The family of this 66-nucleotide RNA sequence is "S15-Flavobacteria ribosomal protein leader". A reference for the family is Eckert and Weinberg (2020), "Discovery of 20 novel ribosomal leader candidates in bacteria and archaea", BMC Microbiol. The family's consensus secondary structure is taken from published work.

RNA sequence: UAUAUUUGCCGAUUGAAAGAAAAUCUUUCAUUGUACAUAAAAAUCAUUUAAAUAAAUAUUGGAAUG
Numbered sequence: 001u002a003u004a005u006u007u008g009c010c011g012a013u014u015g016a017a018a019g020a021a022a023a024u025c026u027u028u029c030a031u032u033g034u035a036c037a038u039a040a041a042a043a044u045c046a047u048u049u050a051a052a053u054a055a056a057u058a059u060u061g062g063a064a065u066g
Stems, first nucleotide, its partner, number of pairs: 014030006